The record is an 80-nucleotide RNA from Nematostella vectensis, which matches "mir-9461 microRNA precursor family" in Rfam. Taxonomically the source falls in Nematostella (Eukaryota, Metazoa, Cnidaria, Edwardsiidae). Its family is annotated with RISC complex and miRNA-mediated post-transcriptional gene silencing in the Gene Ontology.
[Rfam]
Nucleotides: 080
Base pairs, nucleotide, nucleotide: 002078003077004076005075010070011069012068013067014066015065016064017063018062019061023058024057025056027054028053029051030050031049032048033047
Number, partner (000 for none) and nucleotide at each position: 001000u002078u003077u004076g005075u006000u007000u008000u009000c010070u011069u012068g013067c014066c015065a016064u017063u018062g019061u020000a021000u022000u023058u024057c025056c026000a027054g028053g029051u030050g031049u032048g033047a034000g035000g036000u037000u038000u039000u040000g041000u042000u043000u044000c045000u046000a047033u048032c049031a050030u051029g052000u053028c054027c055000a056025g057024g058023a059000u060000g061019a062018c063017a064016g065015u066014g067013g068012c069011a070010a071000a072000a073000c074000c075005a076004c077003a078002a079000c080000c